Background
The family of this 83-nucleotide RNA from Glycine max is "Small nucleolar RNA R16". For this family Rfam cites "Purified box C/D snoRNPs are able to reproduce site-specific 2'-O-methylation of target RNA in vitro" (Galardi et al., Mol Cell Biol, 2002). Rfam classes the family as a C/D-box small nucleolar RNA. A search with the family's covariance model found it, with a score of 64 bits. The family has 18 seed sequences and 884 matches in Rfam 15.1. Gene Ontology terms of the family: nucleolus and RNA processing.
[Rfam]
RNA sequence: UUUCGUAAAUGACGAAAAAAAUCUUUUCCUACACACCGAAAUUACUGUGUGGAUUUCAACUCCGCCUAUUAUCUGAUGCCGUA
Numbered sequence: 001u002u003u004c005g006u007a008a009a010u011g012a013c014g015a016a017a018a019a020a021a022u023c024u025u026u027u028c029c030u031a032c033a034c035a036c037c038g039a040a041a042u043u044a045c046u047g048u049g050u051g052g053a054u055u056u057c058a059a060c061u062c063c064g065c066c067u068a069u070u071a072u073c074u075g076a077u078g079c080c081g082u083a
Stems, first nucleotide, its partner, number of pairs: 003081001005079003